[Rfam]
Nucleotides: 079
Stems, first nucleotide, its partner, number of pairs: 012079003016075004021033003044065004049060003
Number, partner (000 for none) and nucleotide at each position: 001000u002000a003000c004000u005000a006000c007000c008000a009000a010000a011000a012079c013078c014077u015000a016075u017074u018073u019072c020000c021033a022032c023031c024000u025000u026000c027000a028000c029000g030000u031023g032022g033021u034000g035000a036000c037000c038000g039000c040000u041000g042000g043000g044065a045064g046063c047062u048000c049060u050059u051058u052000u053000u054000u055000a056000u057000c058051g059050a060049a061000a062047a063046g064045c065044u066000g067000c068000a069000g070000a071000c072019g073018g074017a075016g076000a077014a078013g079012g
Record summary:
The record is a 79-nucleotide RNA sequence from Hermetia illucens, which matches "drz-agam-1 ribozyme" in Rfam. Rfam links the family to the GO term catalytic activity. It scores 38 bits against the family's covariance model. Pairs were carried over by alignment from the consensus structure, which is taken from published work.